A member of the RNA family "Small nucleolar RNA R64/Z200 family" from Zizania palustris, 95 nucleotides long. Its family is annotated with RNA processing and nucleolus in the Gene Ontology. Rfam classes the family as a C/D-box small nucleolar RNA. The match comes from Rfam's covariance-model search (84 bits).

[Rfam]
RNA sequence: CCAUUGCGGUGAUGAUUUAUGAACAAACAUCGCAUGUCAGACUUCGGAGAUGCUUUGGCAUCCAUGAGAAGACAUGUCAUACGACUGAGCAAUGC
Numbered sequence: 001c002c003a004u005u006g007c008g009g010u011g012a013u014g015a016u017u018u019a020u021g022a023a024c025a026a027a028c029a030u031c032g033c034a035u036g037u038c039a040g041a042c043u044u045c046g047g048a049g050a051u052g053c054u055u056u057g058g059c060a061u062c063c064a065u066g067a068g069a070a071g072a073c074a075u076g077u078c079a080u081a082c083g084a085c086u087g088a089g090c091a092a093u094g095c
Stems, first nucleotide, its partner, number of pairs: 002094006049062004

Taxonomically the source falls in Zizania (Eukaryota, Streptophyta, Spermatophyta, commelinids).